[Rfam]
RNA: Plastid-rps12 3UTR RNA
RNA sequence: GGUUUCCAUUGGCGCAAAUCCAAUCUUGGAAUUGAAGAUGAAAAAAAAUUCCCCAUUGGCAGCAAAUGCUUAUCCAUUAAGCGGGGAAACUCCUAUU
Numbered sequence: 001g002g003u004u005u006c007c008a009u010u011g012g013c014g015c016a017a018a019u020c021c022a023a024u025c026u027u028g029g030a031a032u033u034g035a036a037g038a039u040g041a042a043a044a045a046a047a048a049u050u051c052c053c054c055a056u057u058g059g060c061a062g063c064a065a066a067u068g069c070u071u072a073u074c075c076a077u078u079a080a081g082c083g084g085g086g087a088a089a090c091u092c093c094u095a096u097u
Base pairs, nucleotide, nucleotide: 009023010022011021012020051086052085053084054083055077056076058074059073061071062070